[Rfam]
The record is a 435-nucleotide RNA sequence from Paraphaeosphaeria minitans, which matches "RNase MRP" in Rfam. Rfam classes the family as a ribozyme. The literature on the family includes a 2005 paper in Nucleic Acids Res by Piccinelli et al., "Identification and analysis of ribonuclease P and MRP RNA in a broad range of eukaryotes". The base pairs follow the family's consensus structure, which is taken from published work. RNase MRP is an enzymatically active ribonucleoprotein with two distinct roles in eukaryotes. In mitochondria it plays a direct role in the initiation of mitochondrial DNA replication. In the nucleus it is involved in precursor rRNA processing, where it cleaves the internal transcribed spacer 1 between 18S and 5.8S rRNAs. Despite distinct functions, RNase MRP has been shown to be evolutionarily related to RNase P. Like eukaryotic RNase P, RNase MRP is not catalytically active without associated protein subunits.
RNA sequence: CCCCCGCUCGAAGAAUCGCAACGAAGCACACAUACAGAGCAUCUCUCAACGGAUGCCUCCGCUACGCAUGCUUUGGGAGAAAGUCCCCGGACAUCGGGUCUAACGAUCCGCACUUUCAGCAACGAACCGCCAUAGAAGCGCGGCCUCCCCACAUCAACAUCUGCUUGGCUCAUGCGCCCGUAUGCACUCUUCACUCCCUUGUGCUUGAGGCCCAUGUGGAGGAGCUGGCACCUGGACGACGAUACGAGUCCGCUGGUUUCCGAAGCAUGCCGCCGACGGUUUGAGAAGCUAGGAGGAGGGACAGGAGCUUGAGGGCGCGAUGGUGGCUUGGAGGGUUCUCUCGUCCAGUUUAUGGCUAUGCGAUUGCUCGGCCUCACCUCCAACCUGUUGGAGAUGCGGAUGGGUAACUCAAUGGGGCUUAUUCUCGACGCGAGG
Numbered sequence: 001c002c003c004c005c006g007c008u009c010g011a012a013g014a015a016u017c018g019c020a021a022c023g024a025a026g027c028a029c030a031c032a033u034a035c036a037g038a039g040c041a042u043c044u045c046u047c048a049a050c051g052g053a054u055g056c057c058u059c060c061g062c063u064a065c066g067c068a069u070g071c072u073u074u075g076g077g078a079g080a081a082a083g084u085c086c087c088c089g090g091a092c093a094u095c096g097g098g099u100c101u102a103a104c105g106a107u108c109c110g111c112a113c114u115u116u117c118a119g120c121a122a123c124g125a126a127c128c129g130c131c132a133u134a135g136a137a138g139c140g141c142g143g144c145c146u147c148c149c150c151a152c153a154u155c156a157a158c159a160u161c162u163g164c165u166u167g168g169c170u171c172a173u174g175c176g177c178c179c180g181u182a183u184g185c186a187c188u189c190u191u192c193a194c195u196c197c198c199u200u201g202u203g204c205u206u207g208a209g210g211c212c213c214a215u216g217u218g219g220a221g222g223a224g225c226u227g228g229c230a231c232c233u234g235g236a237c238g239a240c241g242a243u244a245c246g247a248g249u250c251c252g253c254u255g256g257u258u259u260c261c262g263a264a265g266c267a268u269g270c271c272g273c274c275g276a277c278g279g280u281u282u283g284a285g286a287a288g289c290u291a292g293g294a295g296g297a298g299g300g301a302c303a304g305g306a307g308c309u310u311g312a313g314g315g316c317g318c319g320a321u322g323g324u325g326g327c328u329u330g331g332a333g334g335g336u337u338c339u340c341u342c343g344u345c346c347a348g349u350u351u352a353u354g355g356c357u358a359u360g361c362g363a364u365u366g367c368u369c370g371g372c373c374u375c376a377c378c379u380c381c382a383a384c385c386u387g388u389u390g391g392a393g394a395u396g397c398g399g400a401u402g403g404g405u406a407a408c409u410c411a412a413u414g415g416g417g418c419u420u421a422u423u424c425u426c427g428a429c430g431c432g433a434g435g
Stems, first nucleotide, its partner, number of pairs: 002435002005432003008428004014365006022077001023074005037058001039056005081420003085417004097108004270323003274319002279316004286310004367404004372399001